RNA sequence: UUCUAGCCCAGAUAGGAGUGAAAAUCCUUGUUCCAAUGCGAGGUGUUGCCUCGAAUGGAGCAAGAUUGCAACGGAUAGCUGGAAAGCGC
Numbered sequence: 001u002u003c004u005a006g007c008c009c010a011g012a013u014a015g016g017a018g019u020g021a022a023a024a025u026c027c028u029u030g031u032u033c034c035a036a037u038g039c040g041a042g043g044u045g046u047u048g049c050c051u052c053g054a055a056u057g058g059a060g061c062a063a064g065a066u067u068g069c070a071a072c073g074g075a076u077a078g079c080u081g082g083a084a085a086g087c088g089c
Base pairs, nucleotide, nucleotide: 009081010080011079013077014076018072019071023067024066025065026064029062030061031059032058033057039053040052041051042050043049
RNA: Flavo-1 RNA